Overview:
Small nucleolar RNA Z118/Z121/Z120: a 107-nucleotide RNA sequence from Eragrostis curvula. Pairs were carried over by alignment from the consensus structure, which was predicted with PFOLD. NCBI's taxonomy places the organism under Eukaryota, Embryophyta, Liliopsida, Chloridoideae, Eragrostis. The match comes from Rfam's covariance-model search (83 bits).
RNA sequence: UGUUUGCUGUGAUGACCUCUACAAGGACGGUAUCUGAGCAAGUUGGCUUCUAAAGGCCAUCUCUUGCGUGAUUACAUCCAGAACUGAGACUGAUAUCUUAGCAAACU
Number, nucleotide and partner (000 for none) at each position: 001u000002g106003u105004u104005u103006g102007c101008u000009g000010u000011g000012a000013u000014g000015a000016c000017c000018u000019c000020u000021a000022c000023a000024a000025g000026g000027a000028c000029g000030g000031u000032a000033u000034c000035u000036g000037a000038g067039c066040a065041a064042g063043u000044u000045g000046g000047c000048u000049u000050c000051u000052a000053a000054a000055g000056g000057c000058c000059a000060u000061c000062u000063c042064u041065u040066g039067c038068g000069u000070g000071a000072u000073u000074a000075c000076a000077u000078c000079c000080a000081g000082a000083a000084c000085u000086g000087a000088g000089a000090c000091u000092g000093a000094u000095a000096u000097c000098u000099u000100a000101g007102c006103a005104a004105a003106c002107u000